[Rfam]
RNA sequence: CUGCCCUCUGCGGAGUGGAAGACUAGUGAUUUUGUUGUGAAAAUGAACAAAAACCAACAACAAACCGCAGUCGUCCUCUCAGCACGGGGCC
Numbered sequence: 001c002u003g004c005c006c007u008c009u010g011c012g013g014a015g016u017g018g019a020a021g022a023c024u025a026g027u028g029a030u031u032u033u034g035u036u037g038u039g040a041a042a043a044u045g046a047a048c049a050a051a052a053a054c055c056a057a058c059a060a061c062a063a064a065c066c067g068c069a070g071u072c073g074u075c076c077u078c079u080c081a082g083c084a085c086g087g088g089g090c091c
Stems, first nucleotide, its partner, number of pairs: 004088003009084001011082001013080003017076002021072004026068003030064003034061005
RNA: mir-7 microRNA precursor family
Organism: Danio rerio